RNA sequence: CCAAUUUAUAUGACGAAAUAUUUCGGAUGUAAACUUUAUAUUUGACUGAAAUGCGCAAACAACCCCGUGUUGAUAUUUCCGUUGCCUUCCUUCUGAUCCAUGUU
Numbered sequence: 001c002c003a004a005u006u007u008a009u010a011u012g013a014c015g016a017a018a019u020a021u022u023u024c025g026g027a028u029g030u031a032a033a034c035u036u037u038a039u040a041u042u043u044g045a046c047u048g049a050a051a052u053g054c055g056c057a058a059a060c061a062a063c064c065c066c067g068u069g070u071u072g073a074u075a076u077u078u079c080c081g082u083u084g085c086c087u088u089c090c091u092u093c094u095g096a097u098c099c100a101u102g103u104u
Stems, first nucleotide, its partner, number of pairs: 003103001024081004
This 104-nucleotide RNA sequence from Hypoxylon sp. CO27-5 belongs to the Rfam family "Small nucleolar RNA Z13/snr52". Rfam classes the family as a C/D-box small nucleolar RNA. Taxonomically the source falls in Hypoxylon (Eukaryota, sordariomyceta, Sordariomycetes, Hypoxylaceae).